[Rfam]
RNA sequence: AUUGAUCUUAUGAUGAAUCAUUUCGGAUGUAAACACAGACCUGUUCCGAAUAGCGCAAAAACCAUGUGGAUAUUUUCCGUUGCCUUCCUUCUGAUCAGAUCAU
Numbered sequence: 001a002u003u004g005a006u007c008u009u010a011u012g013a014u015g016a017a018u019c020a021u022u023u024c025g026g027a028u029g030u031a032a033a034c035a036c037a038g039a040c041c042u043g044u045u046c047c048g049a050a051u052a053g054c055g056c057a058a059a060a061a062c063c064a065u066g067u068g069g070a071u072a073u074u075u076u077c078c079g080u081u082g083c084c085u086u087c088c089u090u091c092u093g094a095u096c097a098g099a100u101c102a103u
Base pairs, nucleotide, nucleotide: 003102004101005100024079025078026077027076
A member of the RNA family "Small nucleolar RNA Z13/snr52" from Aspergillus leporis, 103 nucleotides long. The organism belongs to Aspergillus subgen. Circumdati, within Eukaryota. Its family is annotated with nucleolus and RNA processing in the Gene Ontology.